[Rfam]
RNA sequence: AUACAUCUAGAUCCAUACCCCUAAACUCCCUAGAUGCUAGGAUAGCUUGGACGCCGAGCUAUCCCUUUUUU
Numbered sequence: 001a002u003a004c005a006u007c008u009a010g011a012u013c014c015a016u017a018c019c020c021c022u023a024a025a026c027u028c029c030c031u032a033g034a035u036g037c038u039a040g041g042a043u044a045g046c047u048u049g050g051a052c053g054c055c056g057a058g059c060u061a062u063c064c065c066u067u068u069u070u071u
Stems, first nucleotide, its partner, number of pairs: 004036006040064010
Shown here is a 71-nucleotide sequence from Bacillus coahuilensis, a member of the family "Listeria sRNA sbrA". The base pairs follow the family's consensus structure, which was predicted with WAR. The literature on the family includes a 2009 paper in Nature by Toledo-Arana et al., "The Listeria transcriptional landscape from saprophytism to virulence". It is annotated as a small RNA. The match comes from Rfam's covariance-model search (70 bits).